RNA: mir-981 microRNA precursor family
RNA sequence: AUCAAUUUAUUUGGGUUUCUUGAUGACUGGACCUUGACAUUAUAUUAAUUUGGUUCGUUGUCGAUGAAACCUUGAUAUUGUUGAU
Numbered sequence: 001a002u003c004a005a006u007u008u009a010u011u012u013g014g015g016u017u018u019c020u021u022g023a024u025g026a027c028u029g030g031a032c033c034u035u036g037a038c039a040u041u042a043u044a045u046u047a048a049u050u051u052g053g054u055u056c057g058u059u060g061u062c063g064a065u066g067a068a069a070c071c072u073u074g075a076u077a078u079u080g081u082u083g084a085u
Base pairs, nucleotide, nucleotide: 001085002084003083004082005081006080013072014071015070016069017068018067019066029056030055031054032053033052